[Rfam]
RNA sequence: UCGGGCAGUUGUCAGCGGACUGCUGUAAGCCUAGUUUGGGCCGGUAUUUGGAUGAUGGAUCGCUUGAGGUUGGGACCCCGUGGCCUAUGGCUACUUAGGUAUACCGCCCACGAGAAGCUUGGUGUGGGCAUUCUGUCCUGGACGUAAGUCCGAGGCAAGAGGCUCCUAAGUAACUGUCUGCUACAGGCCAGCAAUGGAGCAGUAGAAAUGAUGGUAGCACUAGGCAGUCGCGUGGAUCACGGGAAUUAGUUUGGGCUGUAGGUCAUGCCAACCUUGGGUGGAGACUCCCAUCCGUUU
Numbered sequence: 001u002c003g004g005g006c007a008g009u010u011g012u013c014a015g016c017g018g019a020c021u022g023c024u025g026u027a028a029g030c031c032u033a034g035u036u037u038g039g040g041c042c043g044g045u046a047u048u049u050g051g052a053u054g055a056u057g058g059a060u061c062g063c064u065u066g067a068g069g070u071u072g073g074g075a076c077c078c079c080g081u082g083g084c085c086u087a088u089g090g091c092u093a094c095u096u097a098g099g100u101a102u103a104c105c106g107c108c109c110a111c112g113a114g115a116a117g118c119u120u121g122g123u124g125u126g127g128g129c130a131u132u133c134u135g136u137c138c139u140g141g142a143c144g145u146a147a148g149u150c151c152g153a154g155g156c157a158a159g160a161g162g163c164u165c166c167u168a169a170g171u172a173a174c175u176g177u178c179u180g181c182u183a184c185a186g187g188c189c190a191g192c193a194a195u196g197g198a199g200c201a202g203u204a205g206a207a208a209u210g211a212u213g214g215u216a217g218c219a220c221u222a223g224g225c226a227g228u229c230g231c232g233u234g235g236a237u238c239a240c241g242g243g244a245a246u247u248a249g250u251u252u253g254g255g256c257u258g259u260a261g262g263u264c265a266u267g268c269c270a271a272c273c274u275u276g277g278g279u280g281g282a283g284a285c286u287c288c289c290a291u292c293c294g295u296u297u
Stems, first nucleotide, its partner, number of pairs: 001044003004024007029041003049294006057286001060284002063281002066275008079267008088258005094253001097250001104242003108235002111232002114229002117225009126165004131160002134157004139152005166170001173215006179207001181205003188197003
The family of this 297-nucleotide sequence from Mortierella sp. NVP85 is "Metazoan signal recognition particle RNA". Rfam 15.1 lists 383,523 matches to the family in 1,221 species. Pairs were carried over by alignment from the consensus structure, which is taken from published work. Taxonomically the source falls in Mortierella (Eukaryota, Opisthokonta, Mortierellomycotina, Mortierellomycetes).